The family of this 140-nucleotide RNA sequence from Ziziphus jujuba is "MIR397 microRNA precursor family". Gene Ontology terms of the family: miRNA-mediated post-transcriptional gene silencing and RISC complex. The family has 7 seed sequences and 496 matches in Rfam 15.1.
RNA sequence: UAGAGAAACGUCAUUGAGUGCAGCGUUGAUGAAGUUCAGUUUCCUGCUUUUUUUGGUAAUUCUUUGCAAUCUUAUAUCGACUAAUCUAGGCCAUGAGAUAUAGGACAAUUUCAUCAGCGCUGCACCCAAUUAUGUUUCCG
Dot-bracket structure: .....((((((.((((.(((((((((((.(((((((......................................................................))))))).))))))))))).)))).))))))...
Numbered sequence: 001u002a003g004a005g006a007a008a009c010g011u012c013a014u015u016g017a018g019u020g021c022a023g024c025g026u027u028g029a030u031g032a033a034g035u036u037c038a039g040u041u042u043c044c045u046g047c048u049u050u051u052u053u054u055g056g057u058a059a060u061u062c063u064u065u066g067c068a069a070u071c072u073u074a075u076a077u078c079g080a081c082u083a084a085u086c087u088a089g090g091c092c093a094u095g096a097g098a099u100a101u102a103g104g105a106c107a108a109u110u111u112c113a114u115c116a117g118c119g120c121u122g123c124a125c126c127c128a129a130u131u132a133u134g135u136u137u138c139c140g
Stems, first nucleotide, its partner, number of pairs: 006137006013130004018125011030113007